[Rfam]
RNA sequence: GGGUCUCUCUAGUUAGACCAGAUUCGAGCCUGGGAGCUCUCUGGCUAGUGGAGGAACCCAC
Numbered sequence: 001g002g003g004u005c006u007c008u009c010u011a012g013u014u015a016g017a018c019c020a021g022a023u024u025c026g027a028g029c030c031u032g033g034g035a036g037c038u039c040u041c042u043g044g045c046u047a048g049u050g051g052a053g054g055a056a057c058c059c060a061c
Base pairs, nucleotide, nucleotide: 001059002058003057004056006055007054008053010051012049013048014047015046016045018044019043020042021041022040026039027038028037029036
A member of the RNA family "Trans-activation response element (TAR)" from Lentivirus humimdef1, 61 nucleotides long.
The family's consensus secondary structure is taken from published work.
This family represents the HIV trans-activation response (TAR) element which is known to be required for the trans-activation of the viral promoter and for virus replication. The TAR hairpin acts as a binding site for the Tat protein and this interaction stimulates the activity of the long terminal repeat promoter. Further experiments have shown that TAR acts as a miRNA that protects against apoptosis.
Its family is annotated with miRNA-mediated post-transcriptional gene silencing and RISC complex in the Gene Ontology.